[Rfam]
A member of the RNA family "Acido-Lenti-1 RNA" from Persicirhabdus sediminis, 46 nucleotides long.

RNA sequence: CCUAGGGCUGAAGCCCUAGGCUUUGUUCUUUUGGACCUUCGGCCCA
Numbered sequence: 001c002c003u004a005g006g007g008c009u010g011a012a013g014c015c016c017u018a019g020g021c022u023u024u025g026u027u028c029u030u031u032u033g034g035a036c037c038u039u040c041g042g043c044c045c046a
Base pairs, nucleotide, nucleotide: 001020002019003018004017005016006015007014008013033045034044036042037041
Overview:
The source organism's lineage runs through Bacteria, Pseudomonadati, Verrucomicrobiota, Verrucomicrobiaceae and Persicirhabdus. The base pairs follow the family's consensus structure, which is taken from published work.